[Rfam]
RNA: Leucine operon leader
RNA sequence: AGAGACGUUGAAUCACAUGAUCCGAAUUACUCAACUACUAGGCCUACUACUUAACGCAUCUUCUUUGCGCGGUAUGCCAGUGGGCAGAGUUCGGGGCUGAUUCAGCCACUCACCCAUAAGAAACCCGCGCUACUGCGCGGGUUUUUUU
Numbered sequence: 001a002g003a004g005a006c007g008u009u010g011a012a013u014c015a016c017a018u019g020a021u022c023c024g025a026a027u028u029a030c031u032c033a034a035c036u037a038c039u040a041g042g043c044c045u046a047c048u049a050c051u052u053a054a055c056g057c058a059u060c061u062u063c064u065u066u067g068c069g070c071g072g073u074a075u076g077c078c079a080g081u082g083g084g085c086a087g088a089g090u091u092c093g094g095g096g097c098u099g100a101u102u103c104a105g106c107c108a109c110u111c112a113c114c115c116a117u118a119a120g121a122a123a124c125c126c127g128c129g130c131u132a133c134u135g136c137g138c139g140g141g142u143u144u145u146u147u148u
Base pairs, nucleotide, nucleotide: 004109007106008105009104010103012101013100014099015098016096018094027087028086030084031083032082033081048074049073050072051071055069056068057067058066120145121144122143123142124141125140126139127138128137129136130135